[Rfam]
RNA sequence: CUGCAGGGAUGAUCCCACCGAACUCUCUCUUGCUGAUGGCACAGUGGGGAAGCUCUUCAUCAGGCUCUGAGUGGC
Numbered sequence: 001c002u003g004c005a006g007g008g009a010u011g012a013u014c015c016c017a018c019c020g021a022a023c024u025c026u027c028u029c030u031u032g033c034u035g036a037u038g039g040c041a042c043a044g045u046g047g048g049g050a051a052g053c054u055c056u057u058c059a060u061c062a063g064g065c066u067c068u069g070a071g072u073g074g075c
Base pairs, nucleotide, nucleotide: 001074002073003072004071
Dot-bracket structure: ((((..................................................................)))).
This 75-nucleotide RNA from Gavia stellata belongs to the Rfam family "Small nucleolar RNA SNORD26". NCBI's taxonomy places the organism under Eukaryota, Bilateria, Vertebrata, Sauropsida, Gavia. Rfam links the family to the GO terms nucleolus and RNA processing.